[Rfam]
RNA: Eukaryotic large subunit ribosomal RNA, nucleotides 1758 to 2287
Nucleotides: 530
Base pairs, nucleotide, nucleotide: 016032017031019029020028034528035527036526037525043508044507045506046505049489050488054078055077056076057075058074059073063071064070085485086484087483089192090191094186095185098110101108102107119179120178121177196213197212198211199210200209216481217480218479219478267471268469269468274285275284276283277282295456296455297454298453299452300451305440306439307438310435311434312433313432314431315430318426319425320340321339323337324336325335344396345395346394347393348392355385356384357383358382359381360380365375366374367373403422404421405420406419407418408417409416494503495502510522511521512520513519
Number, partner (000 for none) and nucleotide at each position: 001000g002000g003000u004000a005000g006000u007000a008000g009000c010000a011000a012000a013000u014000a015000u016032u017031c018000g019029a020028a021000u022000g023000a024000g025000a026000u027000c028020u029019u030000g031017g032016a033000u034528g035527a036526c037525u038000g039000a040000a041000g042000u043508g044507g045506a046505g047000g048000a049489g050488g051000g052000u053000u054078u055077c056076g057075u058074g059073u060000c061000a062000a063071c064070a065000g066000c067000a068000g069000u070064u071063g072000a073059a074058c075057a076056c077055g078054a079000g080000u081000u082000a083000g084000c085485c086484a087483a088000u089192c090191c091000u092000a093000a094186g095185c096000u097000c098110u099000a100000u101108g102107g103000g104000a105000a106000a107102c108101c109000u110098g111000a112000u113000a114000u115000a116000u117000a118000u119179u120178a121177a122000g123000c124000a125000u126000u127000u128000a129000a130000c131000c132000g133000a134000a135000u136000a137000c138000a139000a140000c141000g142000c143000u144000c145000g146000c147000c148000g149000u150000c151000a152000g153000u154000u155000g156000a157000u158000g159000c160000a161000a162000c163000c164000g165000u166000c167000c168000u169000g170000a171000u172000a173000u174000a175000u176000a177121u178120u179119g180000a181000a182000u183000g184000a185095g186094c187000g188000a189000a190000a191090g192089g193000g194000a195000a196213u197212c198211c199210g200209g201000u202000u203000a204000c205000a206000a207000u208000u209200c210199c211198g212197g213196a214000g215000c216481c217480u218479g219478u220000u221000g222000a223000g224000u225000a226000u227000a228000c229000g230000u231000u232000u233000g234000c235000a236000u237000u238000g239000g240000c241000g242000u243000c244000c245000c246000a247000u248000a249000c250000c251000g252000g253000c254000a255000a256000c257000g258000g259000u260000a261000g262000c263000g264000c265000c266000u267471u268469u269468g270000u271000a272000a273000u274285c275284a276283u277282g278000g279000c280000a281000a282277c283276a284275u285274g286000a287000a288000u289000c290000c291000u292000u293000u294000u295456c296455u297454u298453c299452g300451a301000g302000a303000a304000g305440c306439c307438a308000a309000c310435a311434a312433g313432a314431g315430a316000u317000a318426u319425c320340g321339g322000a323337a324336g325335a326000g327000u328000u329000c330000u331000c332000u333000u334000u335325u336324c337323u338000g339321u340320u341000u342000u343000a344396c345395a346394g347393u348392c349000a350000c351000a352000c353000u354000a355385g356384c357383c358382a359381u360380g361000g362000a363000a364000g365375u366374c367373u368000u369000u370000c371000a372000u373367a374366g375365a376000g377000a378000g379000a380360u381359a382358u383357g384356g385355u386000u387000g388000g389000a390000c391000a392348g393347g394346c395345u396344g397000g398000u399000a400000g401000a402000g403422c404421a405420u406419g407418g408417u409416a410000u411000u412000a413000a414000a415000u416409u417408g418407c419406u420405g421404u422403g423000u424000c425319g426318a427000u428000a429000u430315u431314c432313u433312c434311u435310u436000c437000u438307u439306g440305g441000a442000c443000c444000u445000u446000g447000a448000a449000a450000a451300u452299c453298g454297a455296a456295g457000a458000c459000u460000g461000g462000g463000g464000c465000a466000c467000g468269c469268a470000a471267a472000c473000u474000c475000u476000c477000a478219a479218c480217a481216g482000c483087u484086u485085g486000u487000a488050c489049c490000g491000a492000a493000u494503c495502c496000g497000c498000a499000g500000c501000a502495g503494g504000u505046c506045u507044c508043c509000a510522a511521g512520g513519u514000u515000u516000a517000g518000a519513g520512u521511c522510u523000c524000u525037a526036g527035u528034c529000g530000a